[Rfam]
RNA sequence: GAACUCCUCACCGCAGCUGCUGGACACUGCACAAGAUUAGCGAUAUAAAACUCUUGUGCGUGUGACAGCAGCUAUGGUUGGGACUAGCUUCGUCUAU
Numbered sequence: 001g002a003a004c005u006c007c008u009c010a011c012c013g014c015a016g017c018u019g020c021u022g023g024a025c026a027c028u029g030c031a032c033a034a035g036a037u038u039a040g041c042g043a044u045a046u047a048a049a050a051c052u053c054u055u056g057u058g059c060g061u062g063u064g065a066c067a068g069c070a071g072c073u074a075u076g077g078u079u080g081g082g083a084c085u086a087g088c089u090u091c092g093u094c095u096a097u
Stems, first nucleotide, its partner, number of pairs: 005083004010078003015073008025062002028060006035053002
RNA: mir-210 microRNA precursor family
Organism: Zootermopsis nevadensis